Overview: Group II catalytic intron D1-D4-6: a 216-nucleotide sequence.
[Rfam]
RNA sequence: GAAGUCCUGUACGGCAAAGCCUGACCAGCAGCCGGGAGCGAGUCUUGCGUGGUGUACGGGUAACCGGCACUGCGAGGCGUAGACAGCGAGUUCGGAAGCCACGCGACUGAGCCUCGAAAGUACCGUCGUCGGAGCCUUCGUCGUUGAAUGAGCGGGGGCAGCACGGGCGUUCCGCCAGUGGUCGGGAACGCUCGUCCGGCCGGGGUCGCGCGAGCG
Numbered sequence: 001g002a003a004g005u006c007c008u009g010u011a012c013g014g015c016a017a018a019g020c021c022u023g024a025c026c027a028g029c030a031g032c033c034g035g036g037a038g039c040g041a042g043u044c045u046u047g048c049g050u051g052g053u054g055u056a057c058g059g060g061u062a063a064c065c066g067g068c069a070c071u072g073c074g075a076g077g078c079g080u081a082g083a084c085a086g087c088g089a090g091u092u093c094g095g096a097a098g099c100c101a102c103g104c105g106a107c108u109g110a111g112c113c114u115c116g117a118a119a120g121u122a123c124c125g126u127c128g129u130c131g132g133a134g135c136c137u138u139c140g141u142c143g144u145u146g147a148a149u150g151a152g153c154g155g156g157g158g159c160a161g162c163a164c165g166g167g168c169g170u171u172c173c174g175c176c177a178g179u180g181g182u183c184g185g186g187a188a189c190g191c192u193c194g195u196c197c198g199g200c201c202g203g204g205g206u207c208g209c210g211c212g213a214g215c216g
Base pairs, nucleotide, nucleotide: 012034013033014032015031019029020028022184023183024182025181038087039086042084043083044082045081046079047078048074049073050072051071052070053069054068055067057066058065059064108210109207111206112205113204114203115202116201128200129199130198131197132196133195134159135158136157139154140153141152164194165193166192167191168190169189170188171187172186173185
Dot-bracket structure: ...........((((...((.[[[[..)).))))...((..((((((((((((((.(((....)))))))))))...)).)))).))....................((.((((((...........(((((((((..(((..........)))..)))....((((((((((.......]]]])))))))))))))))))))))))..)......

Record summary:
Rfam's curators write: Group II introns are found in rRNA, tRNA and mRNA of organelles in fungi, plants and protists, and also in mRNA in bacteria. Its family is annotated with Group II intron splicing in the Gene Ontology. Rfam 15.1 lists 1,617 matches to the family in 661 species. On this family, see Bonen and Vogel, Trends Genet 2001: "The ins and outs of group II introns".